[Rfam]
RNA sequence: CGACCGCUAAGAAAUUAGCUGAGGCCACACGGACAGCCGGGUCGGACGCCGA
Numbered sequence: 001c002g003a004c005c006g007c008u009a010a011g012a013a014a015u016u017a018g019c020u021g022a023g024g025c026c027a028c029a030c031g032g033a034c035a036g037c038c039g040g041g042u043c044g045g046a047c048g049c050c051g052a
Stems, first nucleotide, its partner, number of pairs: 001044005006019005

Streptococcus sRNA SpF59 (ldcC RNA): a 52-nucleotide sequence. On this family, see Mann et al., PLoS Pathog 2012: "Control of virulence by small RNAs in Streptococcus pneumoniae". The sequence is in the family's curated seed alignment.